Eukaryotic large subunit ribosomal RNA: a 600-nucleotide part of an RNA from Cucumis melo. The match comes from Rfam's covariance-model search (2129 bits). Lineage of the source: Eukaryota > Viridiplantae > Tracheophyta > rosids > Cucumis melo subsp. agrestis.
[Rfam]
RNA sequence: GAAGACCUGUUGUGCUUAACUAUAGUUCAACUUUGUGAAAUGACUUGAGAGGUGUUGGAUAAGUGGGAGUCGAAAGGCCAAAGUGAAAUACCACUACUUUUAAUGUUAUUUUACUUAUUUCGUGAAAUGAAAGCGAGGCACUGCCCCUCUUUCUGGACAUAAGGCUUGCUUCGGCAGGCCGAUCCGGGCGAAAGAAAUUAUCAGGUGGGGAGUUUGGCUGGGGCGACACAUCUGUUAAAAUAUAAUGCAGGUGUCCUAAGAUGAGCUCAACGAGAACAUAAAUCUCGUGUGGACCAAAAGGGUAAAAGCUCGUUUGAUUCUGAUUUCCAAUACUAAUACGAACUGUGAAAGCAUAACGUAUUGAUCGAGAAAGAAGAAAGACAACUGAAUAUGAGCGAAAGUGGCUCGACUGAGGUUAGGAAGGAGAGGAGCGAGACUUUGUUUGGAGGUUCUUUGAAAGUCGACUGAUAAGGAGAGGAGAGGAGUUAUCCUUUUGACCUUCGAAAUUCGAAGCUAGAGGCAUCAGAAAAGUUACCACAAGGAUAACUGGCUUGUGGCAGGUAAGCGUUCAUAGCAACGUUGCUUUUUUAUCCUUCAAUG
Dot-bracket structure: ......(((.((.((((.(((....((..(....(((((((((((((((((..........(((((..((......))............))))).))))))).))))))))))...(((((.....((.(...(.(((...))).)...............(((((........)))))..).))..))))).......)..)).....)))..((.(.....).).)((((((...........))))))..((....((((((((.((((((.......))))))...)).(......).....))))))....(((..(((.........)))..))).(.(...................................................................................................................................).).)).......((((.(..((((.......))))).)))).........))))...)))).)........(...(.(((((....((.......))....)))))...)..).........
Numbered sequence: 001g002a003a004g005a006c007c008u009g010u011u012g013u014g015c016u017u018a019a020c021u022a023u024a025g026u027u028c029a030a031c032u033u034u035g036u037g038a039a040a041u042g043a044c045u046u047g048a049g050a051g052g053u054g055u056u057g058g059a060u061a062a063g064u065g066g067g068a069g070u071c072g073a074a075a076g077g078c079c080a081a082a083g084u085g086a087a088a089u090a091c092c093a094c095u096a097c098u099u100u101u102a103a104u105g106u107u108a109u110u111u112u113a114c115u116u117a118u119u120u121c122g123u124g125a126a127a128u129g130a131a132a133g134c135g136a137g138g139c140a141c142u143g144c145c146c147c148u149c150u151u152u153c154u155g156g157a158c159a160u161a162a163g164g165c166u167u168g169c170u171u172c173g174g175c176a177g178g179c180c181g182a183u184c185c186g187g188g189c190g191a192a193a194g195a196a197a198u199u200a201u202c203a204g205g206u207g208g209g210g211a212g213u214u215u216g217g218c219u220g221g222g223g224c225g226a227c228a229c230a231u232c233u234g235u236u237a238a239a240a241u242a243u244a245a246u247g248c249a250g251g252u253g254u255c256c257u258a259a260g261a262u263g264a265g266c267u268c269a270a271c272g273a274g275a276a277c278a279u280a281a282a283u284c285u286c287g288u289g290u291g292g293a294c295c296a297a298a299a300g301g302g303u304a305a306a307a308g309c310u311c312g313u314u315u316g317a318u319u320c321u322g323a324u325u326u327c328c329a330a331u332a333c334u335a336a337u338a339c340g341a342a343c344u345g346u347g348a349a350a351g352c353a354u355a356a357c358g359u360a361u362u363g364a365u366c367g368a369g370a371a372a373g374a375a376g377a378a379a380g381a382c383a384a385c386u387g388a389a390u391a392u393g394a395g396c397g398a399a400a401g402u403g404g405c406u407c408g409a410c411u412g413a414g415g416u417u418a419g420g421a422a423g424g425a426g427a428g429g430a431g432c433g434a435g436a437c438u439u440u441g442u443u444u445g446g447a448g449g450u451u452c453u454u455u456g457a458a459a460g461u462c463g464a465c466u467g468a469u470a471a472g473g474a475g476a477g478g479a480g481a482g483g484a485g486u487u488a489u490c491c492u493u494u495u496g497a498c499c500u501u502c503g504a505a506a507u508u509c510g511a512a513g514c515u516a517g518a519g520g521c522a523u524c525a526g527a528a529a530a531g532u533u534a535c536c537a538c539a540a541g542g543a544u545a546a547c548u549g550g551c552u553u554g555u556g557g558c559a560g561g562u563a564a565g566c567g568u569u570c571a572u573a574g575c576a577a578c579g580u581u582g583c584u585u586u587u588u589u590a591u592c593c594u595u596c597a598a599u600g
Stems, first nucleotide, its partner, number of pairs: 007541001008539002011537002014532004019213003026205002030201001035114010045103007062095005069078002118193005128186002131183001135147001137145003163180005216229001217227001219225001230252006255483002261313006267293002270288006295302001318342003323337003344480001346478001491519004496514001499513004550591001554588001556584005565575002